[Rfam]
RNA sequence: CGGUGAGGUAGAGGAGCGGAUAAUAAUAGUAAUUCAUCGGAGUAUGACAUCGAUGAGGAUGGAUGAAAGGAUUGUUCGCCGAAGCGCCAUUCGGAGUCAAACGAUUGGUUGCUGGGAUGCUUUCUGAAUAAGAAGCAGACUGUCAUGCUUUUUGUAUGUGCAUGGAGGACUACUGAUCGA
Dot-bracket structure: ......(((((....(((((((((.......(((((((...................)))))))......)))))))))...(((((((.(((........))).))).))))((..((((((........))))))..)).((((((...........))))))....)))))......
Numbered sequence: 001c002g003g004u005g006a007g008g009u010a011g012a013g014g015a016g017c018g019g020a021u022a023a024u025a026a027u028a029g030u031a032a033u034u035c036a037u038c039g040g041a042g043u044a045u046g047a048c049a050u051c052g053a054u055g056a057g058g059a060u061g062g063a064u065g066a067a068a069g070g071a072u073u074g075u076u077c078g079c080c081g082a083a084g085c086g087c088c089a090u091u092c093g094g095a096g097u098c099a100a101a102c103g104a105u106u107g108g109u110u111g112c113u114g115g116g117a118u119g120c121u122u123u124c125u126g127a128a129u130a131a132g133a134a135g136c137a138g139a140c141u142g143u144c145a146u147g148c149u150u151u152u153u154g155u156a157u158g159u160g161c162a163u164g165g166a167g168g169a170c171u172a173c174u175g176a177u178c179g180a
Stems, first nucleotide, its partner, number of pairs: 007174005016079009032064007083113004087108003091104003114141002118137006143165006